This 129-nucleotide RNA sequence from Alphaproteobacteria bacterium PA2 belongs to the Rfam family "Caulobacter sRNA CC3664". For this family Rfam cites "Small non-coding RNAs in Caulobacter crescentus" (Landt et al., Mol Microbiol, 2008). The base pairs follow the family's consensus structure. The organism belongs to Alphaproteobacteria, within Bacteria. By type it is a small RNA.
RNA sequence: GUCGGUUGAUCGGAGCCCCGUUGGUCCCGGACCCUGAACAGCCCCCCCAGCCCCACCUGGAUUGCGGGCCGGUCAACCGAUAGAGAUCCCAGCGAUCGCGCCCGCGCAACUCCCCCCGUUGCGCGGGCG
Numbered sequence: 001g002u003c004g005g006u007u008g009a010u011c012g013g014a015g016c017c018c019c020g021u022u023g024g025u026c027c028c029g030g031a032c033c034c035u036g037a038a039c040a041g042c043c044c045c046c047c048c049a050g051c052c053c054c055a056c057c058u059g060g061a062u063u064g065c066g067g068g069c070c071g072g073u074c075a076a077c078c079g080a081u082a083g084a085g086a087u088c089c090c091a092g093c094g095a096u097c098g099c100g101c102c103c104g105c106g107c108a109a110c111u112c113c114c115c116c117c118g119u120u121g122c123g124c125g126g127g128c129g
Stems, first nucleotide, its partner, number of pairs: 001081013018068002022064005029057002034050003085097004099129011